[Rfam]
RNA sequence: UUUGUCAGCGAUUAGGCAUGUUGCAGAACCAAAACUGCGAAAGUGACAAAGUAUUCCAUAGAAACACUUGGCGUCAUCUUGUGUGGUGAAAACCUGCAAAGUACAUAGAGUAAACAAAUUUGGCACAAUACUGGUAGGAAUGACGCUCCUAUCAGUAUUUU
Numbered sequence: 001u002u003u004g005u006c007a008g009c010g011a012u013u014a015g016g017c018a019u020g021u022u023g024c025a026g027a028a029c030c031a032a033a034a035c036u037g038c039g040a041a042a043g044u045g046a047c048a049a050a051g052u053a054u055u056c057c058a059u060a061g062a063a064a065c066a067c068u069u070g071g072c073g074u075c076a077u078c079u080u081g082u083g084u085g086g087u088g089a090a091a092a093c094c095u096g097c098a099a100a101g102u103a104c105a106u107a108g109a110g111u112a113a114a115c116a117a118a119u120u121u122g123g124c125a126c127a128a129u130a131c132u133g134g135u136a137g138g139a140a141u142g143a144c145g146c147u148c149c150u151a152u153c154a155g156u157a158u159u160u161u
Stems, first nucleotide, its partner, number of pairs: 001050007022039005029123005051104005064084004070078001071146007085094003127159013
The record is a 161-nucleotide RNA sequence, which matches "FuFi-1 RNA" in Rfam. It is annotated as a small RNA. The family's consensus secondary structure is taken from published work.